[Rfam]
RNA sequence: UGCGGAAGUUUUCCUCGGUAGUUAACUGCAGUCAGUUCCAAUAAAAUUCGACAGUUAGCUGCCGAGGGACAU
Numbered sequence: 001u002g003c004g005g006a007a008g009u010u011u012u013c014c015u016c017g018g019u020a021g022u023u024a025a026c027u028g029c030a031g032u033c034a035g036u037u038c039c040a041a042u043a044a045a046a047u048u049c050g051a052c053a054g055u056u057a058g059c060u061g062c063c064g065a066g067g068g069a070c071a072u
Base pairs, nucleotide, nucleotide: 012068013067015065016064017063018062019061020060021059022058023057024056025055026054027053028052
RNA: MIR2629 microRNA precursor family
Organism: Medicago truncatula